Shown here is a 115-nucleotide sequence from Etheostoma spectabile, a member of the family "U5 spliceosomal RNA". Pairs were carried over by alignment from the consensus structure, which is taken from published work.

RNA sequence: UUACUCUGGUUUCUCUUCAUAACGCACAAGCCUUUCGCCUUUUACUAAAGACUUCCGUGGAGAGGAACGCCUAUGAGUUGAAUUAUUUGGUGGGCUUUGCUGUUUGGUUAAGCCU
Numbered sequence: 001u002u003a004c005u006c007u008g009g010u011u012u013c014u015c016u017u018c019a020u021a022a023c024g025c026a027c028a029a030g031c032c033u034u035u036c037g038c039c040u041u042u043u044a045c046u047a048a049a050g051a052c053u054u055c056c057g058u059g060g061a062g063a064g065g066a067a068c069g070c071c072u073a074u075g076a077g078u079u080g081a082a083u084u085a086u087u088u089g090g091u092g093g094g095c096u097u098u099g100c101u102g103u104u105u106g107g108u109u110a111a112g113c114c115u
Base pairs, nucleotide, nucleotide: 003078004077005076006075009068010067011066012065013064014063015062016061017060018059019058028054029053030052032050033049034048035047093114094113095112096111097110